[Rfam]
RNA sequence: AUUGAUAUUUAUUCAUUGUAGAAGCGUGCUCGUCGCGACCCCUGCCAGCCCUUUUCAGGGCUGCAAUUCUGCA
Numbered sequence: 001a002u003u004g005a006u007a008u009u010u011a012u013u014c015a016u017u018g019u020a021g022a023a024g025c026g027u028g029c030u031c032g033u034c035g036c037g038a039c040c041c042c043u044g045c046c047a048g049c050c051c052u053u054u055u056c057a058g059g060g061c062u063g064c065a066a067u068u069c070u071g072c073a
Base pairs, nucleotide, nucleotide: 013038014037017073018072019071020070021069022068023067024036025035026034046063047062048061049060050059051058052057
RNA: Mammalian CPEB3 ribozyme
Organism: Parnassius apollo